[Rfam]
RNA sequence: GUUCUCUGAAUGAUGAUAGACACCGGUAAUGCAUAGUUCAACUGACUUUUAGAUUGAAGAUAUAAAUACCAUCGAAUUUAGUCUUUCGCUCCUAUCUGACCAGAGAAA
Numbered sequence: 001g002u003u004c005u006c007u008g009a010a011u012g013a014u015g016a017u018a019g020a021c022a023c024c025g026g027u028a029a030u031g032c033a034u035a036g037u038u039c040a041a042c043u044g045a046c047u048u049u050u051a052g053a054u055u056g057a058a059g060a061u062a063u064a065a066a067u068a069c070c071a072u073c074g075a076a077u078u079u080a081g082u083c084u085u086u087c088g089c090u091c092c093u094a095u096c097u098g099a100c101c102a103g104a105g106a107a108a
Stems, first nucleotide, its partner, number of pairs: 004105005
This 108-nucleotide RNA from Lachancea fermentati belongs to the Rfam family "Small nucleolar RNA snR60/Z15/Z230/Z193/J17". By type it is a C/D-box small nucleolar RNA. The match comes from Rfam's covariance-model search (72 bits). Its Rfam clan is "SNORD77 clan".